[Rfam]
RNA sequence: UGGUCAAUGAUGAUACCCUUUCUGUCAUGAAGAGUGGUGAUGACAUAAAAAUCAUGCUUAAUAGGAUUACGAUGAAGCCC
Numbered sequence: 001u002g003g004u005c006a007a008u009g010a011u012g013a014u015a016c017c018c019u020u021u022c023u024g025u026c027a028u029g030a031a032g033a034g035u036g037g038u039g040a041u042g043a044c045a046u047a048a049a050a051a052u053c054a055u056g057c058u059u060a061a062u063a064g065g066a067u068u069a070c071g072a073u074g075a076a077g078c079c080c
Stems, first nucleotide, its partner, number of pairs: 002079003005074002008071002
A member of the RNA family "Small nucleolar RNA SNORD115" from Jaculus jaculus, 80 nucleotides long. Rfam 15.1 lists 3,387 matches to the family in 131 species. Rfam classes the family as a C/D-box small nucleolar RNA. The base pairs follow the family's consensus structure, which was predicted with PFOLD. A reference for the family is Cavaille et al. (2000), "Identification of brain-specific and imprinted small nucleolar RNA genes exhibiting an unusual genomic organization", Proc Natl Acad Sci U S A.